[Rfam]
RNA sequence: AAACAAUCAGCCAAUUAAACUCGUAUAAUCGUGGAGAUAUGGUCCACAAGUUUCUACCGGGCUGCCGUAAAUGGCCUGACUACGAGUGAUAAUUUGUACACC
Numbered sequence: 001a002a003a004c005a006a007u008c009a010g011c012c013a014a015u016u017a018a019a020c021u022c023g024u025a026u027a028a029u030c031g032u033g034g035a036g037a038u039a040u041g042g043u044c045c046a047c048a049a050g051u052u053u054c055u056a057c058c059g060g061g062c063u064g065c066c067g068u069a070a071a072u073g074g075c076c077u078g079a080c081u082a083c084g085a086g087u088g089a090u091a092a093u094u095u096g097u098a099c100a101c102c
Base pairs, nucleotide, nucleotide: 019087020086021085022084023083024082025081029049031047032046033045034044035043058078059077060076061075062074063073064072
This 102-nucleotide RNA from Halalkalibacter oceani belongs to the Rfam family "Purine riboswitch aptamer". The match comes from Rfam's covariance-model search (88 bits).